[Rfam]
RNA sequence: UUAAAGAUACUUCUCUAUGGAGCUGGCGGAGAACCCGGCAGAGGUUAGAUUCCUAUGG
Numbered sequence: 001u002u003a004a005a006g007a008u009a010c011u012u013c014u015c016u017a018u019g020g021a022g023c024u025g026g027c028g029g030a031g032a033a034c035c036c037g038g039c040a041g042a043g044g045u046u047a048g049a050u051u052c053c054u055a056u057g058g
Base pairs, nucleotide, nucleotide: 012055013022014021015020023041024040025039027037028036029035042054043053044052

Shown here is a 58-nucleotide RNA sequence, a member of the family "pemK RNA". It is annotated as a cis-regulatory element. The base pairs follow the family's consensus structure, which is taken from published work.